[Rfam]
RNA sequence: UUCUUAUCCAGAAAGACUGAGGGAAUUGACCCUAUGACGUCUUGGCAACCUGCCCCGCAUUAGCGGGAUAAGGUGCCACAUUCAACCAUGCUUUGGCAUGGAUAGAUAAGUU
Numbered sequence: 001u002u003c004u005u006a007u008c009c010a011g012a013a014a015g016a017c018u019g020a021g022g023g024a025a026u027u028g029a030c031c032c033u034a035u036g037a038c039g040u041c042u043u044g045g046c047a048a049c050c051u052g053c054c055c056c057g058c059a060u061u062a063g064c065g066g067g068a069u070a071a072g073g074u075g076c077c078a079c080a081u082u083c084a085a086c087c088a089u090g091c092u093u094u095g096g097c098a099u100g101g102a103u104a105g106a107u108a109a110g111u112u
Stems, first nucleotide, its partner, number of pairs: 003110006013043005021032003026085004044077004049073002053067002081104001086101006

Rfam assigns this 112-nucleotide sequence from Flavobacterium rivuli to the family "SAM riboswitch aptamer (S box leader)". The SAM riboswitch is found upstream of a number of genes which code for proteins involved in methionine or cysteine biosynthesis in Gram-positive bacteria. The family's consensus secondary structure is taken from published work.